[Rfam]
Shown here is a 102-nucleotide RNA from Romboutsia sp. CE17, a member of the family "Purine riboswitch aptamer". Gene Ontology term of the family: purine nucleobase biosynthetic process. Its Rfam clan is "Purine riboswitches". The family's consensus secondary structure is taken from published work. A search with the family's covariance model found it, with a score of 90 bits.

RNA sequence: ACAAUUGAAAUUAACGUCACUCGUAUAUACCCAAAAAUAAGGUUUGGGAGUUUCUACCGAGAUACCGUAAAUAUCUUGACUAUGAGUGGAAUUAUUAUUAGC
Numbered sequence: 001a002c003a004a005u006u007g008a009a010a011u012u013a014a015c016g017u018c019a020c021u022c023g024u025a026u027a028u029a030c031c032c033a034a035a036a037a038u039a040a041g042g043u044u045u046g047g048g049a050g051u052u053u054c055u056a057c058c059g060a061g062a063u064a065c066c067g068u069a070a071a072u073a074u075c076u077u078g079a080c081u082a083u084g085a086g087u088g089g090a091a092u093u094a095u096u097a098u099u100a101g102c
Stems, first nucleotide, its partner, number of pairs: 018088008030048006058078007